[Rfam]
This 69-nucleotide RNA sequence from Erinaceus europaeus belongs to the Rfam family "mir-711 microRNA precursor family". The base pairs follow the family's consensus structure, which was predicted with RNAalifold. Rfam 15.1 lists 118 matches to the family in 116 species. A search with the family's covariance model found it, with a score of 82 bits. Rfam links the family to the GO terms miRNA-mediated post-transcriptional gene silencing and RISC complex. Lineage of the source: Eukaryota > Bilateria > Tetrapoda > Theria > Erinaceus.
RNA sequence: CCUAACUCUGAGUUUCUCCUCAGGGUGCUACAGGCAAAGCUGGGGAUCCAGGGAGAGACGUAAGUGAGC
Numbered sequence: 001c002c003u004a005a006c007u008c009u010g011a012g013u014u015u016c017u018c019c020u021c022a023g024g025g026u027g028c029u030a031c032a033g034g035c036a037a038a039g040c041u042g043g044g045g046a047u048c049c050a051g052g053g054a055g056a057g058a059c060g061u062a063a064g065u066g067a068g069c
Base pairs, nucleotide, nucleotide: 002068003067005065006064007063012059013058014057015056016055017054018053019052020051023049024048025047026046028044029043031042032041033040